Shown here is a 104-nucleotide sequence from Propioniciclava sinopodophylli, a member of the family "TPP riboswitch aptamer (THI element)". Rfam's curators write: Vitamin B(1) in its active form thiamin pyrophosphate (TPP) is an essential coenzyme that is synthesised by coupling of pyrimidine and thiazole moieties in bacteria. It scores 61 bits against the family's covariance model.

Nucleotides: 104
Stems, first nucleotide, its partner, number of pairs: 006092004011052004017028004035046004058083003064077004
Number, partner (000 for none) and nucleotide at each position: 001000g002000c003000a004000a005000u006092g007091c008090c009089c010000c011052c012051g013050g014049g015000g016000a017028g018027c019026g020025c021000g022000c023000c024000a025020g026019c027018g028017c029000u030000g031000a032000g033000a034000g035046u036045g037044c038043c039000a040000u041000c042000c043038g044037g045036c046035a047000g048000a049014c050013c051012c052011g053000u054000g055000g056000a057000a058083c059082c060081u061000g062000a063000a064077c065076u066075g067074g068000g069000u070000a071000a072000c073000a074067c075066c076065a077064g078000c079000g080000g081060a082059g083058g084000a085000a086000g087000u088000u089009g090008g091007g092006c093000a094000g095000g096000a097000g098000g099000c100000c101000g102000c103000g104000c